The family of this 176-nucleotide RNA sequence from Oryza barthii is "MIR807 microRNA precursor family". The organism belongs to Oryza, within Eukaryota.
RNA sequence: AACCACACUAUCGAUGAAUGGAUUCACCCAUGAGAUAAUGUGGUUGUUUCAUCAAGGAUGAGGACGUGGCAUCCUAUUAGUUUCGUGCGAUGGCUGGUAAUAGGAUGCCAUGUCCACAUCCUAGGUGAAACAAUAACGUCAUCUCGCGGAUGAAUCCAUUCAUUGAUAGUGUGGUU
Numbered sequence: 001a002a003c004c005a006c007a008c009u010a011u012c013g014a015u016g017a018a019u020g021g022a023u024u025c026a027c028c029c030a031u032g033a034g035a036u037a038a039u040g041u042g043g044u045u046g047u048u049u050c051a052u053c054a055a056g057g058a059u060g061a062g063g064a065c066g067u068g069g070c071a072u073c074c075u076a077u078u079a080g081u082u083u084c085g086u087g088c089g090a091u092g093g094c095u096g097g098u099a100a101u102a103g104g105a106u107g108c109c110a111u112g113u114c115c116a117c118a119u120c121c122u123a124g125g126u127g128a129a130a131c132a133a134u135a136a137c138g139u140c141a142u143c144u145c146g147c148g149g150a151u152g153a154a155u156c157c158a159u160u161c162a163u164u165g166a167u168a169g170u171g172u173g174g175u176u
Stems, first nucleotide, its partner, number of pairs: 001176007009168007017160003021156006028149001031146003035142002038139002041136001043134006051126002055122001057120002063114003069108011086097001
The family's consensus secondary structure was predicted with WAR.